A member of the RNA family "Glycine riboswitch aptamer" from Luteibacter sp. Sphag1AF, 101 nucleotides long. Rfam links the family to the GO term glycine biosynthetic process.

RNA sequence: CGGAAACACUCUGGAGAGACCGGUUAGAUCCGGCGCCGAAGGUGCAAGAGGCGGCUUUCAUGCCCCUCCAAACUCUCAGGCAAAAGGACAGAGGGGCGCCC
Numbered sequence: 001c002g003g004a005a006a007c008a009c010u011c012u013g014g015a016g017a018g019a020c021c022g023g024u025u026a027g028a029u030c031c032g033g034c035g036c037c038g039a040a041g042g043u044g045c046a047a048g049a050g051g052c053g054g055c056u057u058u059c060a061u062g063c064c065c066c067u068c069c070a071a072a073c074u075c076u077c078a079g080g081c082a083a084a085a086g087g088a089c090a091g092a093g094g095g096g097c098g099c100c101c
Stems, first nucleotide, its partner, number of pairs: 007095001009093005020033004035081003038077002042075001044073001048068004